[Rfam]
RNA: U7 small nuclear RNA
Organism: Callithrix jacchus
RNA sequence: UGGCCCUAUAGCUCUUUUAGAAUUUGUCUAACAAGUUUUUCAGUUUUUACCAGAAAAUGUCCCA
Numbered sequence: 001u002g003g004c005c006c007u008a009u010a011g012c013u014c015u016u017u018u019a020g021a022a023u024u025u026g027u028c029u030a031a032c033a034a035g036u037u038u039u040u041c042a043g044u045u046u047u048u049a050c051c052a053g054a055a056a057a058u059g060u061c062c063c064a
Stems, first nucleotide, its partner, number of pairs: 035060002037057005043050002